[Rfam]
RNA sequence: UAGGGGGGACGGGGUUCGGCUCCCCUCCCCGAACCCAGGGUAACCUUGCGAGUGGAGGGGAA
Numbered sequence: 001u002a003g004g005g006g007g008g009a010c011g012g013g014g015u016u017c018g019g020c021u022c023c024c025c026u027c028c029c030c031g032a033a034c035c036c037a038g039g040g041u042a043a044c045c046u047u048g049c050g051a052g053u054g055g056a057g058g059g060g061a062a
Stems, first nucleotide, its partner, number of pairs: 008041001010039001012036004016031001018029002022060006
The family of this 62-nucleotide RNA from Microcebus murinus is "Gag/pol translational readthrough site". Rfam classes the family as a cis-regulatory element. NCBI's taxonomy places the organism under Eukaryota, Gnathostomata, Euteleostomi, Dipnotetrapodomorpha, Microcebus. On this family, see ten Dam et al., Virus Genes 1990: "RNA pseudoknots: translational frameshifting and readthrough on viral RNAs".